[Rfam]
RNA sequence: AUCUCCAUCUUACGAGGCAGUUUUGGAUGUCAUAGAAUUCUCUAAUACUGCCUGGUAAUGAUGCAGAU
Numbered sequence: 001a002u003c004u005c006c007a008u009c010u011u012a013c014g015a016g017g018c019a020g021u022u023u024u025g026g027a028u029g030u031c032a033u034a035g036a037a038u039u040c041u042c043u044a045a046u047a048c049u050g051c052c053u054g055g056u057a058a059u060g061a062u063g064c065a066g067a068u
Stems, first nucleotide, its partner, number of pairs: 002067003006063004010058004015053007023045005
Dot-bracket structure: .(((.((((((((.(((((((.(((((.............))))).))))))).)))).)))).))).
RNA: mir-8/mir-141/mir-200 microRNA precursor family
Organism: Pangasianodon hypophthalmus